[Rfam]
RNA sequence: GGGCUCAUGAUGAUAAUAUAUAAUUAUCUUAGCGGAUUUCAGUGAGAUAUGUUAUAUCAAUGAUCUGAUUGUUACACACACUGAAGCUC
Numbered sequence: 001g002g003g004c005u006c007a008u009g010a011u012g013a014u015a016a017u018a019u020a021u022a023a024u025u026a027u028c029u030u031a032g033c034g035g036a037u038u039u040c041a042g043u044g045a046g047a048u049a050u051g052u053u054a055u056a057u058c059a060a061u062g063a064u065c066u067g068a069u070u071g072u073u074a075c076a077c078a079c080a081c082u083g084a085a086g087c088u089c
Base pairs, nucleotide, nucleotide: 001089002088003087004086005085
RNA: Small nucleolar RNA R11/Z151
Organism: Turnera subulata